[Rfam]
Shown here is a 109-nucleotide sequence from Callorhinchus milii, a member of the family "Y RNA". It is annotated as a non-coding RNA gene. The family has 104 seed sequences and 26,986 matches in Rfam 15.1.
RNA sequence: GGCCGGUCCGAUGGUAGUGGGUUAUCGUUGAUAUUUGCUUACAGAGUCAGUUACAGAUUUCCUUGUUCUCUCUUCCCCCCUUCUCACUGCUUCACUUGACUGGUCCUUU
Numbered sequence: 001g002g003c004c005g006g007u008c009c010g011a012u013g014g015u016a017g018u019g020g021g022u023u024a025u026c027g028u029u030g031a032u033a034u035u036u037g038c039u040u041a042c043a044g045a046g047u048c049a050g051u052u053a054c055a056g057a058u059u060u061c062c063u064u065g066u067u068c069u070c071u072c073u074u075c076c077c078c079c080c081u082u083c084u085c086a087c088u089g090c091u092u093c094a095c096u097u098g099a100c101u102g103g104u105c106c107u108u109u
Stems, first nucleotide, its partner, number of pairs: 001105008010097002014093001016088006027070001030067004

Overview: The sequence is in the family's curated seed alignment. Rfam's curators write: Y RNAs are components of the Ro ribonucleoprotein particle (Ro RNP), in association with Ro60 and La proteins. The Y RNAs and Ro60 and La proteins are well conserved, but the function of the Ro RNP is not known. In humans the RNA component can be one of four small RNAs -- hY1, hY3, hY4 and hY5. These small RNAs are predicted to fold into a conserved secondary structure containing three stem structures.